[Rfam]
RNA: atoC RNA
Organism: Geobacter metallireducens
RNA sequence: GGUAUACUAUAAGUGAAAGAAUUGCGAGGGUCGCAAGGCCCUCAUUAUGCCCUAGUUGACUUUCCCUCCUAGUCGCUAGGGUGUUUUU
Numbered sequence: 001g002g003u004a005u006a007c008u009a010u011a012a013g014u015g016a017a018a019g020a021a022u023u024g025c026g027a028g029g030g031u032c033g034c035a036a037g038g039c040c041c042u043c044a045u046u047a048u049g050c051c052c053u054a055g056u057u058g059a060c061u062u063u064c065c066c067u068c069c070u071a072g073u074c075g076c077u078a079g080g081g082u083g084u085u086u087u088u
Stems, first nucleotide, its partner, number of pairs: 026043007049082007057075005